[Rfam]
RNA sequence: GAUAUCCACUAGGGGCGCCCGCGAGGGCUGAGAUAAAGCGAAGCUUUGGUCCCUUCGAACCUGAUCUGGGUCAUGCCAGCGUAGGAAAGUGGUCGAAUCGCGCA
Numbered sequence: 001g002a003u004a005u006c007c008a009c010u011a012g013g014g015g016c017g018c019c020c021g022c023g024a025g026g027g028c029u030g031a032g033a034u035a036a037a038g039c040g041a042a043g044c045u046u047u048g049g050u051c052c053c054u055u056c057g058a059a060c061c062u063g064a065u066c067u068g069g070g071u072c073a074u075g076c077c078a079g080c081g082u083a084g085g086a087a088a089g090u091g092g093u094c095g096a097a098u099c100g101c102g103c104a
Stems, first nucleotide, its partner, number of pairs: 006092005011054004016048001017028004035047005060085004066079004
RNA: TPP riboswitch aptamer (THI element)